About this RNA: Shown here is an 88-nucleotide RNA sequence from Mangrovibacter sp. MFB070, a member of the family "TrxA 5' UTR thermometer". On this family, see Righetti et al., Proc Natl Acad Sci U S A 2016: "Temperature-responsive in vitro RNA structurome of Yersinia pseudotuberculosis". Involved in protection against oxidative stress.

[Rfam]
RNA sequence: ACCUUUGUGUUGGUUAAUGCUACACCAACCACCCAGGCAUAAUCUUGUGGAGUAAAACAUGAGCGAUAAAAUUAUUCACCUGACCGAC
Numbered sequence: 001a002c003c004u005u006u007g008u009g010u011u012g013g014u015u016a017a018u019g020c021u022a023c024a025c026c027a028a029c030c031a032c033c034c035a036g037g038c039a040u041a042a043u044c045u046u047g048u049g050g051a052g053u054a055a056a057a058c059a060u061g062a063g064c065g066a067u068a069a070a071a072u073u074a075u076u077c078a079c080c081u082g083a084c085c086g087a088c
Base pairs, nucleotide, nucleotide: 008068009067010066011065012064014062015061016060021054022053023052025050026049027048030047031046072087073086076083077082
Dot-bracket structure: .......(((((.(((....(((.(((..((..............))))).))).....))).)))))...((..((....))..)).